[Rfam]
RNA sequence: AAAUAGGCCUCACUUAGAGGCCUUGCUAUGACCUGGGGAGGUUAGGCAUCCAUGGGUAGCGGUAGCUCCGCCCCUCUUGGAGAGACGACAACCAGAGACCGGGUUGUCAGACCCGGUUGGGACCGUCUC
Numbered sequence: 001a002a003a004u005a006g007g008c009c010u011c012a013c014u015u016a017g018a019g020g021c022c023u024u025g026c027u028a029u030g031a032c033c034u035g036g037g038g039a040g041g042u043u044a045g046g047c048a049u050c051c052a053u054g055g056g057u058a059g060c061g062g063u064a065g066c067u068c069c070g071c072c073c074c075u076c077u078u079g080g081a082g083a084g085a086c087g088a089c090a091a092c093c094a095g096a097g098a099c100c101g102g103g104u105u106g107u108c109a110g111a112c113c114c115g116g117u118u119g120g121g122a123c124c125g126u127c128u129c
Base pairs, nucleotide, nucleotide: 005023006022007021008020009019010018011017029044030043031042032041033040034039049081050080051079052078054075055073056072059071060070061069062068082129083128084127085126086125087124097118098117099116100115101114102113103112
This 129-nucleotide RNA sequence belongs to the Rfam family "LAGLIDADG-2 RNA".